Description:
A member of the RNA family "c-di-AMP riboswitch aptamer (ydaO/yuaA leader)", 150 nucleotides long. It scores 78 bits against the family's covariance model. Rfam's curators write: This family represents a conserved RNA structure found upstream of the ydaO and yuaA genes in Bacillus subtilis and related genes in other bacteria.
RNA sequence: GAGUUCAGUACGCCGAGAGGCAUGGAACCGGGGACCCACGACCUUUGGGGUGAAUCGGCCGACGACCCGUCAGGGCGCGGCCGUAGGGCAGCCUUCCGAAUCUCCGCCCGAACCCGACAGCUAACCCGGUAGGCGGUCAUGGGAAGGAGA
Numbered sequence: 001g002a003g004u005u006c007a008g009u010a011c012g013c014c015g016a017g018a019g020g021c022a023u024g025g026a027a028c029c030g031g032g033g034a035c036c037c038a039c040g041a042c043c044u045u046u047g048g049g050g051u052g053a054a055u056c057g058g059c060c061g062a063c064g065a066c067c068c069g070u071c072a073g074g075g076c077g078c079g080g081c082c083g084u085a086g087g088g089c090a091g092c093c094u095u096c097c098g099a100a101u102c103u104c105c106g107c108c109c110g111a112a113c114c115c116g117a118c119a120g121c122u123a124a125c126c127c128g129g130u131a132g133g134c135g136g137u138c139a140u141g142g143g144a145a146g147g148a149g150a
Stems, first nucleotide, its partner, number of pairs: 004026003027130006037047002048115003056083006086109004